[Rfam]
RNA: Trans-activation response element (TAR)
Organism: Lentivirus humimdef1
RNA sequence: UGGUCUCUCUUGUUAGACCAGAUCAGGGCCUGAGAGCUCUCUGGCUAACUAGGGAACCCAC
Numbered sequence: 001u002g003g004u005c006u007c008u009c010u011u012g013u014u015a016g017a018c019c020a021g022a023u024c025a026g027g028g029c030c031u032g033a034g035a036g037c038u039c040u041c042u043g044g045c046u047a048a049c050u051a052g053g054g055a056a057c058c059c060a061c
Stems, first nucleotide, its partner, number of pairs: 002058003006055005012049005018044005026039004